[Rfam]
RNA: SAM riboswitch aptamer (S box leader)
RNA sequence: UUGUUAUCACGAAAGGCAGAGGGACUAGACCCGUUGAAGCCUUGGCAACCCUACACUUGUAGAAGGUGCUACAUUCUACCGUAUUUAUGUACGGACAGAUAACUC
Numbered sequence: 001u002u003g004u005u006a007u008c009a010c011g012a013a014a015g016g017c018a019g020a021g022g023g024a025c026u027a028g029a030c031c032c033g034u035u036g037a038a039g040c041c042u043u044g045g046c047a048a049c050c051c052u053a054c055a056c057u058u059g060u061a062g063a064a065g066g067u068g069c070u071a072c073a074u075u076c077u078a079c080c081g082u083a084u085u086u087a088u089g090u091a092c093g094g095a096c097a098g099a100u101a102a103c104u105c
Stems, first nucleotide, its partner, number of pairs: 003103006013043005021032003026078004044070004049066002051062004074097001079094006